[Rfam]
RNA sequence: AAUGUCCCUCGCGGGAGUCCGGCGCACCGGGCUGAGAGGGGGCUGAUGCGGCCCCGACCGUCCAACUUGAUCCGGGUCAUGCCGGCGCAAGGAGCAGUGGUCGAUGAGACG
Numbered sequence: 001a002a003u004g005u006c007c008c009u010c011g012c013g014g015g016a017g018u019c020c021g022g023c024g025c026a027c028c029g030g031g032c033u034g035a036g037a038g039g040g041g042g043c044u045g046a047u048g049c050g051g052c053c054c055c056g057a058c059c060g061u062c063c064a065a066c067u068u069g070a071u072c073c074g075g076g077u078c079a080u081g082c083c084g085g086c087g088c089a090a091g092g093a094g095c096a097g098u099g100g101u102c103g104a105u106g107a108g109a110c111g
Base pairs, nucleotide, nucleotide: 006099008097009096011061012060013059014058017032018031019030020029021028039055040054041053042052043051044050045049066091067090068089069088072085073084074083075082
Rfam assigns this 111-nucleotide RNA sequence from Barrientosiimonas humi to the family "TPP riboswitch aptamer (THI element)".